[Rfam]
RNA sequence: GUCAUCGUGAGGUGGGGUCUGGAGGAAGCCCGAGGCGAGACCUGGGUACCGAGGAACACGAACCGCGUAUGAGGCGUACUGGUCGGGUGAGCCUGCAACAGAAGGUGAUGCCCGUCACUGCCAAGAGGGCCAGUGCGUAAACGCGGCGGGGGUCCAGGGACAGUGAUCGUU
Numbered sequence: 001g002u003c004a005u006c007g008u009g010a011g012g013u014g015g016g017g018u019c020u021g022g023a024g025g026a027a028g029c030c031c032g033a034g035g036c037g038a039g040a041c042c043u044g045g046g047u048a049c050c051g052a053g054g055a056a057c058a059c060g061a062a063c064c065g066c067g068u069a070u071g072a073g074g075c076g077u078a079c080u081g082g083u084c085g086g087g088u089g090a091g092c093c094u095g096c097a098a099c100a101g102a103a104g105g106u107g108a109u110g111c112c113c114g115u116c117a118c119u120g121c122c123a124a125g126a127g128g129g130c131c132a133g134u135g136c137g138u139a140a141a142c143g144c145g146g147c148g149g150g151g152g153u154c155c156a157g158g159g160a161c162a163g164u165g166a167u168c169g170u171u
Stems, first nucleotide, its partner, number of pairs: 002015005028171001030169001032167001035164002041158006047151001049149003063146006074138003078134007085113004091106004

Annotation:
This 171-nucleotide sequence belongs to the Rfam family "Group II catalytic intron D1-D4-3". Pairs were carried over by alignment from the consensus structure. It scores 130 bits against the family's covariance model. For this family Rfam cites "Control of branch-site choice by a group II intron" (Chu et al., EMBO J, 2001).